[Rfam]
RNA sequence: CCGGCUCCGGUUCACGUGCGCGAGCACGACCCGGCGGCC
Dot-bracket structure: ..(((.((((....(((((....)))))..))))..)))
Numbered sequence: 001c002c003g004g005c006u007c008c009g010g011u012u013c014a015c016g017u018g019c020g021c022g023a024g025c026a027c028g029a030c031c032c033g034g035c036g037g038c039c
Stems, first nucleotide, its partner, number of pairs: 003039003007034004015028005
The record is a 39-nucleotide sequence, which matches "L31-Actinobacteria ribosomal protein leader" in Rfam. It is one of the family's seed sequences. Clan: Ribosomal Protein L31 Leader clan.